[Rfam]
RNA sequence: GCUGAGCCUGGUAACGUGGGCCUGGAUCUGCUUGAGGUGAUAGGAACAUUGAUUCAGCUCAUAUGGUUGGGUCUGGAUCUGCUUGAUUCUGGCUUGUCUGUUUGAAGCCAGGAGUUGAACCAUGGCAUCCUAGUGAAGACAUGGGUGUCAUGGCUCCUAGAGUGGAGGGUACAACGUGAGGCUGGUUUCACAGAGCAGCGACUACCUCCCUCUCCCGGCAGUGAAAAAGAUAACGGGUCGGUGCUGUCUAGAUCCAAAAUGGCUUAAUGGGCUGGUCUAAUUGGACCAUCACUUUU
Numbered sequence: 001g002c003u004g005a006g007c008c009u010g011g012u013a014a015c016g017u018g019g020g021c022c023u024g025g026a027u028c029u030g031c032u033u034g035a036g037g038u039g040a041u042a043g044g045a046a047c048a049u050u051g052a053u054u055c056a057g058c059u060c061a062u063a064u065g066g067u068u069g070g071g072u073c074u075g076g077a078u079c080u081g082c083u084u085g086a087u088u089c090u091g092g093c094u095u096g097u098c099u100g101u102u103u104g105a106a107g108c109c110a111g112g113a114g115u116u117g118a119a120c121c122a123u124g125g126c127a128u129c130c131u132a133g134u135g136a137a138g139a140c141a142u143g144g145g146u147g148u149c150a151u152g153g154c155u156c157c158u159a160g161a162g163u164g165g166a167g168g169g170u171a172c173a174a175c176g177u178g179a180g181g182c183u184g185g186u187u188u189c190a191c192a193g194a195g196c197a198g199c200g201a202c203u204a205c206c207u208c209c210c211u212c213u214c215c216c217g218g219c220a221g222u223g224a225a226a227a228a229g230a231u232a233a234c235g236g237g238u239c240g241g242u243g244c245u246g247u248c249u250a251g252a253u254c255c256a257a258a259a260u261g262g263c264u265u266a267a268u269g270g271g272c273u274g275g276u277c278u279a280a281u282u283g284g285a286c287c288a289u290c291a292c293u294u295u296u
Stems, first nucleotide, its partner, number of pairs: 001031002004023001006021005034295008043286001047283002049280003054275009065264004069255009079246001081244001083243001089241009098229002101226003105222001107219003111215004117156002120153011133140002157162001164209005175200003182193003
RNA: Plant signal recognition particle RNA